[Rfam]
RNA sequence: UAACUCUGGUUUCCCUUCAAAACGUACAAAUCUUUCGCCUUUUACUAAAGAUUUCCGUGGAGGGGAACACUCAAAUGAGUCUUUACUAUUUUUGAUAGCUUUACAUUGUAAAGCU
Numbered sequence: 001u002a003a004c005u006c007u008g009g010u011u012u013c014c015c016u017u018c019a020a021a022a023c024g025u026a027c028a029a030a031u032c033u034u035u036c037g038c039c040u041u042u043u044a045c046u047a048a049a050g051a052u053u054u055c056c057g058u059g060g061a062g063g064g065g066a067a068c069a070c071u072c073a074a075a076u077g078a079g080u081c082u083u084u085a086c087u088a089u090u091u092u093u094g095a096u097a098g099c100u101u102u103a104c105a106u107u108g109u110a111a112a113g114c115u
Stems, first nucleotide, its partner, number of pairs: 003080004009068011028054008097115006
The family of this 115-nucleotide sequence from Pararge aegeria is "U5 spliceosomal RNA". Rfam 15.1 lists 28,527 matches to the family in 2,489 species. By type it is a spliceosomal small nuclear RNA. The family's consensus secondary structure is taken from published work.